[Rfam]
Background: The record is a 150-nucleotide sequence, which matches "Spi-1 (PU.1) 5' UTR regulatory element" in Rfam. Rfam describes the family as follows. Spi-1 regulates myeloid gene expression during haemopoietic development. This family represents a regulatory element found in the 5' UTR of Spi-1 mRNA which is able to inhibit the translation Spi-1 transcripts by 8-fold. Mutations in this regulatory region of the 5' UTR can lead to overexpression of Spi-1 which has been linked to erythroleukemic transformation. For this family Rfam cites "The conserved 5'-untranslated leader of Spi-1 (PU.1) mRNA is highly structured and potently inhibits translation in vitro but not in vivo" (Hensold et al., Nucleic Acids Res, 1997).

RNA sequence: CUCAGGGGGCAGGCCUGAGCCCUGCGUCUGACCCACGACCGUCCAGUCCCCCGACGGGGCACCUGGUCCUGAGGGGGAUCCGCCUUGAUCCCCACCGAAGCAGGGGAUCUGACCAACCUGGAGCUCAGCUGGAUGUUACAGGCGUGCAAA
Numbered sequence: 001c002u003c004a005g006g007g008g009g010c011a012g013g014c015c016u017g018a019g020c021c022c023u024g025c026g027u028c029u030g031a032c033c034c035a036c037g038a039c040c041g042u043c044c045a046g047u048c049c050c051c052c053g054a055c056g057g058g059g060c061a062c063c064u065g066g067u068c069c070u071g072a073g074g075g076g077g078a079u080c081c082g083c084c085u086u087g088a089u090c091c092c093c094a095c096c097g098a099a100g101c102a103g104g105g106g107a108u109c110u111g112a113c114c115a116a117c118c119u120g121g122a123g124c125u126c127a128g129c130u131g132g133a134u135g136u137u138a139c140a141g142g143c144g145u146g147c148a149a150a
Stems, first nucleotide, its partner, number of pairs: 004023004010017001024145007040135006047078005055071006079122004085112002087109007123129002